[Rfam]
RNA sequence: CCCUGCAUUCGAAAGUGAUCGUGGGCUGCGGUGCCCUGGUCAUUGAUAGUGCAGGGAGAGGACUGCGAAAGCAUUUCCCCGUGUUGGAGGGCCCACCCCGUCCCUUGCGAACCCUGGCGCUUUCACACA
Numbered sequence: 001c002c003c004u005g006c007a008u009u010c011g012a013a014a015g016u017g018a019u020c021g022u023g024g025g026c027u028g029c030g031g032u033g034c035c036c037u038g039g040u041c042a043u044u045g046a047u048a049g050u051g052c053a054g055g056g057a058g059a060g061g062a063c064u065g066c067g068a069a070a071g072c073a074u075u076u077c078c079c080c081g082u083g084u085u086g087g088a089g090g091g092c093c094c095a096c097c098c099c100g101u102c103c104c105u106u107g108c109g110a111a112c113c114c115u116g117g118c119g120c121u122u123u124c125a126c127a128c129a
Stems, first nucleotide, its partner, number of pairs: 001056009014044008023036004065126001067124006083112003086108001087106005

The record is a 129-nucleotide RNA sequence from Myotis myotis, which matches "Small nucleolar RNA SNORA71" in Rfam. By type it is an H/ACA-box small nucleolar RNA. The members of this family belong to the H/ACA class of snoRNAs which bind a number of proteins (including dyskerin, Gar1p and Nop10p) to form snoRNP complexes. This class of snoRNAs are thought to guide the sites of modification of uridines to pseudouridines by forming direct base pairing interactions with substrate RNAs. This family includes U71 (SNORA71), ACA39 (SNORA39) and ACA60 (SNORA60). U71 and ACA60 are predicted to guide the pseudouridylation of U406 and U1004 in 18S rRNA respectively. There is currently no target RNA identified for ACA39. Rfam 15.1 lists 1,805 matches to the family in 606 species. Its family is annotated with RNA processing and nucleolus in the Gene Ontology. On this family, see Ganot et al., Genes Dev 1997: "The family of box ACA small nucleolar RNAs is defined by an evolutionarily conserved secondary structure and ubiquitous sequence elements essential for RNA accumulation". Lineage of the source: Eukaryota > Chordata > Gnathostomata > Tetrapoda > Myotis.